[Rfam]
RNA sequence: GGAGCCACGGGGAGGGAUCCCAGUCCAGGCUUGGGAAAAGAAACCUGCCAUGGGAGUCUUGGAGAUUGGCGACCAUCCUAAUGAUUUA
Numbered sequence: 001g002g003a004g005c006c007a008c009g010g011g012g013a014g015g016g017a018u019c020c021c022a023g024u025c026c027a028g029g030c031u032u033g034g035g036a037a038a039a040g041a042a043a044c045c046u047g048c049c050a051u052g053g054g055a056g057u058c059u060u061g062g063a064g065a066u067u068g069g070c071g072a073c074c075a076u077c078c079u080a081a082u083g084a085u086u087u088a
Base pairs, nucleotide, nucleotide: 002087003086004085006083007082010079011078012077013076015074016073018071020069021068022067023066024065025064030061038060039059040058041057044054045053046052047051
Notes:
The record is an 88-nucleotide sequence from Equus asinus, which matches "mir-9014 microRNA precursor family" in Rfam. It scores 80 bits against the family's covariance model. Its family is annotated with RISC complex and miRNA-mediated post-transcriptional gene silencing in the Gene Ontology. The family has 2 seed sequences and 581 matches in Rfam 15.1.